[Rfam]
RNA sequence: AGCUGUCUUCGGGGCGGGGUGAAAGUCCCCACCGGCGGUAAUGCGGCCUUAAGAAGCCGAUGAGCCCGCGACCAAACGCCAAAGUAUUGGCGGGAGCUGAUUCCGGUUGGAUCCCGGAGCCGACGGUUAGAGUCCGGAUGAAAGAAGCGGCG
Numbered sequence: 001a002g003c004u005g006u007c008u009u010c011g012g013g014g015c016g017g018g019g020u021g022a023a024a025g026u027c028c029c030c031a032c033c034g035g036c037g038g039u040a041a042u043g044c045g046g047c048c049u050u051a052a053g054a055a056g057c058c059g060a061u062g063a064g065c066c067c068g069c070g071a072c073c074a075a076a077c078g079c080c081a082a083a084g085u086a087u088u089g090g091c092g093g094g095a096g097c098u099g100a101u102u103c104c105g106g107u108u109g110g111a112u113c114c115c116g117g118a119g120c121c122g123a124c125g126g127u128u129a130g131a132g133u134c135c136g137g138a139u140g141a142a143a144g145a146a147g148c149g150g151c152g
Base pairs, nucleotide, nucleotide: 003150004149005148007147008146009145010144017029018028019027031133032132033122034121035069036068037067038066064120065119073096102118103117104116105115106114124136125135126134
Rfam assigns this 152-nucleotide RNA sequence from Eubacteriaceae bacterium CHKCI005 to the family "FMN riboswitch aptamer (RFN element)". The family's consensus secondary structure is taken from published work. The match comes from Rfam's covariance-model search (89 bits).